[Rfam]
RNA sequence: AUUGCCUCCGAAUAACCAGAAGGUUCAUUAACACGAUACCGUUUGGUUCAGACAGAGGCGAAGAUCAAUCCGAAUCAGUUUGAGGGAGAGGAAAAUUUUCCUUCCUUUCCUUUCCUAGAUAGAUUCGAACAUUU
Numbered sequence: 001a002u003u004g005c006c007u008c009c010g011a012a013u014a015a016c017c018a019g020a021a022g023g024u025u026c027a028u029u030a031a032c033a034c035g036a037u038a039c040c041g042u043u044u045g046g047u048u049c050a051g052a053c054a055g056a057g058g059c060g061a062a063g064a065u066c067a068a069u070c071c072g073a074a075u076c077a078g079u080u081u082g083a084g085g086g087a088g089a090g091g092a093a094a095a096u097u098u099u100c101c102u103u104c105c106u107u108u109c110c111u112u113u114c115c116u117a118g119a120u121a122g123a124u125u126c127g128a129a130c131a132u133u134u
Stems, first nucleotide, its partner, number of pairs: 003060006014048007023039002071127006078115001082112003086109001089106005
This 134-nucleotide sequence from Hevea brasiliensis belongs to the Rfam family "Small nucleolar RNA snoR138".
It scores 90 bits against the family's covariance model.